[Rfam]
Annotation: The family of this 112-nucleotide RNA sequence from Aureimonas pseudogalii is "rpsB sRNA". By type it is a small RNA. A reference for the family is Meyer et al. (2009), "Identification of candidate structured RNAs in the marine organism 'Candidatus Pelagibacter ubique'", BMC Genomics. A search with the family's covariance model found it, with a score of 45 bits.

RNA sequence: CACACACGGAAGCCGGGUCUGGCCAAGCGUUCUUCGCUUUCCCAAACCCACCGGUGGCAGCUCUCGUGAGCUGCUUCGUUCCGUGGAGGCUCAACCGGUAUAAGGACGAUUC
Numbered sequence: 001c002a003c004a005c006a007c008g009g010a011a012g013c014c015g016g017g018u019c020u021g022g023c024c025a026a027g028c029g030u031u032c033u034u035c036g037c038u039u040u041c042c043c044a045a046a047c048c049c050a051c052c053g054g055u056g057g058c059a060g061c062u063c064u065c066g067u068g069a070g071c072u073g074c075u076u077c078g079u080u081c082c083g084u085g086g087a088g089g090c091u092c093a094a095c096c097g098g099u100a101u102a103a104g105g106a107c108g109a110u111u112c
Stems, first nucleotide, its partner, number of pairs: 001088001003086001005085007015049002034045001036043001056075008

Lineage of the source: Bacteria > Pseudomonadati > Pseudomonadota > Hyphomicrobiales > Aureimonas.